The record is a 100-nucleotide RNA sequence from Alloprevotella rava, which matches "TPP riboswitch aptamer (THI element)" in Rfam. The base pairs follow the family's consensus structure, which is taken from published work. From the family's description: Vitamin B(1) in its active form thiamin pyrophosphate (TPP) is an essential coenzyme that is synthesised by coupling of pyrimidine and thiazole moieties in bacteria. Taxonomically the source falls in Alloprevotella rava (Bacteria, Bacteroidales, Prevotellaceae, Alloprevotella).
RNA sequence: AAUGCAUUUUAGGGGUGCCCAGACCGUUUGGUCGGCUGAGAAUAUACCCUUACGAACUGAACCGGACAAUUCCGGCGUAGUCAAAAAUCAAACAAUCUCU
Numbered sequence: 001a002a003u004g005c006a007u008u009u010u011a012g013g014g015g016u017g018c019c020c021a022g023a024c025c026g027u028u029u030g031g032u033c034g035g036c037u038g039a040g041a042a043u044a045u046a047c048c049c050u051u052a053c054g055a056a057c058u059g060a061a062c063c064g065g066a067c068a069a070u071u072c073c074g075g076c077g078u079a080g081u082c083a084a085a086a087a088u089c090a091a092a093c094a095a096u097c098u099c100u
Stems, first nucleotide, its partner, number of pairs: 006088005011050004016044001017036003021032001056081004062075004